The family of this 81-nucleotide sequence from Erinaceus europaeus is "Small nucleolar RNA SNORD116". Taxonomically the source falls in Erinaceus (Eukaryota, Deuterostomia, Mammalia, Boreoeutheria). It is annotated as a C/D-box small nucleolar RNA.

[Rfam]
RNA sequence: CUAUCAGUGAUGGCUCCCCUCAAAAACAUUCCUUAGAAAGCUGAAUAUAAUGAGAAAAAAAUAAAUGUUGACUCCAGGUGG
Numbered sequence: 001c002u003a004u005c006a007g008u009g010a011u012g013g014c015u016c017c018c019c020u021c022a023a024a025a026a027c028a029u030u031c032c033u034u035a036g037a038a039a040g041c042u043g044a045a046u047a048u049a050a051u052g053a054g055a056a057a058a059a060a061a062u063a064a065a066u067g068u069u070g071a072c073u074c075c076a077g078g079u080g081g
Stems, first nucleotide, its partner, number of pairs: 001081005029054003034047002
The family's consensus secondary structure was predicted with PFOLD.